This 90-nucleotide RNA from Enterococcus asini belongs to the Rfam family "Enterococcus sRNA 84". The literature on the family includes a 2015 paper in RNA by Innocenti et al., "Whole-genome mapping of 5' RNA ends in bacteria by tagged sequencing: a comprehensive view in Enterococcus faecalis". By type it is an antisense RNA. The base pairs follow the family's consensus structure, which was predicted with RNAfold. NCBI's taxonomy places the organism under Bacteria, Bacillota, Bacilli, Enterococcus, Enterococcus asini.
[Rfam]
RNA sequence: AACCAACAACAACCUUUUUAUUUUUCAUUUACUCCGCUCGAGAGUAAUACUCCUUUUCCACCGGACCUAACCAACCCGGUGGUUUUUUUG
Numbered sequence: 001a002a003c004c005a006a007c008a009a010c011a012a013c014c015u016u017u018u019u020a021u022u023u024u025u026c027a028u029u030u031a032c033u034c035c036g037c038u039c040g041a042g043a044g045u046a047a048u049a050c051u052c053c054u055u056u057u058c059c060a061c062c063g064g065a066c067c068u069a070a071c072c073a074a075c076c077c078g079g080u081g082g083u084u085u086u087u088u089u090g
Stems, first nucleotide, its partner, number of pairs: 029047006058082007068074001